Shown here is a 47-nucleotide sequence, a member of the family "Plastid-rpl16 group II-D1 intron". Rfam links the family to the GO term Group II intron splicing. For this family Rfam cites "Retrograde signaling in plants: A critical review focusing on the GUN pathway and beyond" (Richter et al., Plant Commun, 2023). The family's consensus secondary structure was predicted with LocARNA. Plastid-rpl16 is a non-coding RNA (ncRNA) recognised in plastids. It was recognised in and intronic region of a ribosome rpl16 gene. Rfam 15.1 lists 1,446 matches to the family in 693 species. The sequence is in the family's curated seed alignment.

[Rfam]
RNA sequence: AAGAGCAUCGAGUCAAUAAAGACUGAGUAGAUUGAUUCAUUAAAAAA
Numbered sequence: 001a002a003g004a005g006c007a008u009c010g011a012g013u014c015a016a017u018a019a020a021g022a023c024u025g026a027g028u029a030g031a032u033u034g035a036u037u038c039a040u041u042a043a044a045a046a047a
Base pairs, nucleotide, nucleotide: 007041010038011037012036013035014034015033016032017031